[Rfam]
RNA sequence: AUCUAUCUUCGGGGUAAGGUGUAAUUCCUAACCGGCGGUAAAGUCCGCGAGCGCAAGCAGAACUAGUGAAAUUCUAGUACCGACAGUUAAAGUCUGGAUGGGAGAAGAAAAAU
Numbered sequence: 001a002u003c004u005a006u007c008u009u010c011g012g013g014g015u016a017a018g019g020u021g022u023a024a025u026u027c028c029u030a031a032c033c034g035g036c037g038g039u040a041a042a043g044u045c046c047g048c049g050a051g052c053g054c055a056a057g058c059a060g061a062a063c064u065a066g067u068g069a070a071a072u073u074c075u076a077g078u079a080c081c082g083a084c085a086g087u088u089a090a091a092g093u094c095u096g097g098a099u100g101g102g103a104g105a106a107g108a109a110a111a112a113u
Stems, first nucleotide, its partner, number of pairs: 004110001006108005017029003031093002033082002035048004043080002051058002062078005084096003
The family of this 113-nucleotide RNA sequence from Granulicatella sp. zg-ZJ is "FMN riboswitch aptamer (RFN element)". Taxonomically the source falls in Granulicatella (Bacteria, Bacillati, Bacilli, Lactobacillales). On this family, see Serganov et al., Nature 2009: "Coenzyme recognition and gene regulation by a flavin mononucleotide riboswitch". From the family's description: The RFN element is a highly conserved domain that is found frequently in the 5'-untranslated regions of prokaryotic mRNAs that encode for flavin mononucleotide (FMN) biosynthesis and transport proteins.